[Rfam]
RNA sequence: CGGUUUGAGGAGCGUUGCGACGGGGGAACCCGCCAGGCUCAAACCUUACACAUAGCAACGGCGCUCACGUCUU
Numbered sequence: 001c002g003g004u005u006u007g008a009g010g011a012g013c014g015u016u017g018c019g020a021c022g023g024g025g026g027a028a029c030c031c032g033c034c035a036g037g038c039u040c041a042a043a044c045c046u047u048a049c050a051c052a053u054a055g056c057a058a059c060g061g062c063g064c065u066c067a068c069g070u071c072u073u
Stems, first nucleotide, its partner, number of pairs: 002045007021032004
SAH (S-adenosyl-L-homocysteine) riboswitch aptamer: a 73-nucleotide RNA sequence from Sulfuriferula sp. AH1. Gene Ontology terms of the family: S-adenosylhomocysteine metabolic process and regulation of gene expression.